[Rfam]
RNA: 7SK RNA
RNA sequence: GAAUAUGAGGGAGAUCUGGCUGUAACAUCUGUCAUCCCAUUGAUAGCCAGGGUUGAUUUGGCUGAUCUGGCUGGCUAGGUGGGUGUCCCCUUCCUCCCUCACCGAUCCAUGUGCAUCCCUCCCGAAGCUGCUAGCUCGGUCAAAGAGGAUGACCUUCCCUGAACAGAGGAGGACCAGUCUUCAGUCAAGGGUAUACGAGUAGCUGUGCUCCCCUGCUUGAACCUCCAAACAAGCUCUCAAGAAUGUAUUUUUACAGAUGGUUGUGUUUUCUUUCAAUUUCCUUAUCAUAUGUUGUAACAUCAAAUAAGGGAAUAUCAGUGGUUAUCA
Numbered sequence: 001g002a003a004u005a006u007g008a009g010g011g012a013g014a015u016c017u018g019g020c021u022g023u024a025a026c027a028u029c030u031g032u033c034a035u036c037c038c039a040u041u042g043a044u045a046g047c048c049a050g051g052g053u054u055g056a057u058u059u060g061g062c063u064g065a066u067c068u069g070g071c072u073g074g075c076u077a078g079g080u081g082g083g084u085g086u087c088c089c090c091u092u093c094c095u096c097c098c099u100c101a102c103c104g105a106u107c108c109a110u111g112u113g114c115a116u117c118c119c120u121c122c123c124g125a126a127g128c129u130g131c132u133a134g135c136u137c138g139g140u141c142a143a144a145g146a147g148g149a150u151g152a153c154c155u156u157c158c159c160u161g162a163a164c165a166g167a168g169g170a171g172g173a174c175c176a177g178u179c180u181u182c183a184g185u186c187a188a189g190g191g192u193a194u195a196c197g198a199g200u201a202g203c204u205g206u207g208c209u210c211c212c213c214u215g216c217u218u219g220a221a222c223c224u225c226c227a228a229a230c231a232a233g234c235u236c237u238c239a240a241g242a243a244u245g246u247a248u249u250u251u252u253a254c255a256g257a258u259g260g261u262u263g264u265g266u267u268u269u270c271u272u273u274c275a276a277u278u279u280c281c282u283u284a285u286c287a288u289a290u291g292u293u294g295u296a297a298c299a300u301c302a303a304a305u306a307a308g309g310g311a312a313u314a315u316c317a318g319u320g321g322u323u324a325u326c327a
Stems, first nucleotide, its partner, number of pairs: 001108001003106001006101006013093002018090002025086009035074002037070003042067003046062003116172002118169004122139004127135002140162003147158003202270001211265001213263001215261002223256002229251001231249002293327002297322002301318001302315001304313002